[Rfam]
RNA sequence: GGACCACAUUGGAGUUGUGUCCUGGACCCGCUGCGUUGUCCUUGCUGCACACUCACGUGGUCCGAGA
Number, nucleotide and partner (000 for none) at each position: 001g063002g062003a061004c060005c059006a058007c057008a000009u000010u000011g000012g000013a000014g000015u000016u000017g050018u049019g048020u047021c000022c000023u000024g041025g040026a039027c038028c000029c000030g000031c000032u000033g000034c000035g000036u000037u000038g027039u026040c025041c024042u000043u000044g000045c000046u000047g020048c019049a018050c017051a000052c000053u000054c000055a000056c000057g007058u006059g005060g004061u003062c002063c001064g000065a000066g000067a000